Rfam assigns this 131-nucleotide RNA from Synechocystis sp. PCC 6803 to the family "Ribosomal protein L10 leader".
It is one of the family's seed sequences.
For this family Rfam cites "Diverse mechanisms for regulating ribosomal protein synthesis in Escherichia coli" (Zengel and Lindahl, Prog Nucleic Acid Res Mol Biol, 1994).
Rfam classes the family as a cis-regulatory leader.
RNA sequence: UUUAUUUAACUGGCUAUGCCAAAGACCGCAGGAGCAAUUAGGGUUGCUUAAUUAACCUGCCGAGGUUGAAGCCUGAAUCAAGAUUUGAGUUUGUUGGGGAUUUGCUUCCUUGACAGCUUUUAAUGCUCUGC
Dot-bracket structure: ...........................(((((.(((........)))........)))))..............................((((((((((......))))))))))...............
Numbered sequence: 001u002u003u004a005u006u007u008a009a010c011u012g013g014c015u016a017u018g019c020c021a022a023a024g025a026c027c028g029c030a031g032g033a034g035c036a037a038u039u040a041g042g043g044u045u046g047c048u049u050a051a052u053u054a055a056c057c058u059g060c061c062g063a064g065g066u067u068g069a070a071g072c073c074u075g076a077a078u079c080a081a082g083a084u085u086u087g088a089g090u091u092u093g094u095u096g097g098g099g100a101u102u103u104g105c106u107u108c109c110u111u112g113a114c115a116g117c118u119u120u121u122a123a124u125g126c127u128c129u130g131c
Stems, first nucleotide, its partner, number of pairs: 028060005034047003091116010